[Rfam]
RNA sequence: ACUCAACAUUACACUUUUUAAAAAGGGUGAGUUUCGGUUGUAAGAGCAGGCCUUCUUGUCAAGGAUCCUCGCGCAGCUGGUUAGCCCUAAACCUGUUUUUAGGAGUUU
Numbered sequence: 001a002c003u004c005a006a007c008a009u010u011a012c013a014c015u016u017u018u019u020a021a022a023a024a025g026g027g028u029g030a031g032u033u034u035c036g037g038u039u040g041u042a043a044g045a046g047c048a049g050g051c052c053u054u055c056u057u058g059u060c061a062a063g064g065a066u067c068c069u070c071g072c073g074c075a076g077c078u079g080g081u082u083a084g085c086c087c088u089a090a091a092c093c094u095g096u097u098u099u100u101a102g103g104a105g106u107u108u
Stems, first nucleotide, its partner, number of pairs: 024088005035079005044070003051064004
A member of the RNA family "6S-Flavo RNA" from Aureicoccus marinus, 108 nucleotides long.
Pairs were carried over by alignment from the consensus structure, which is taken from published work.
The family's RNA type in Rfam is small RNA.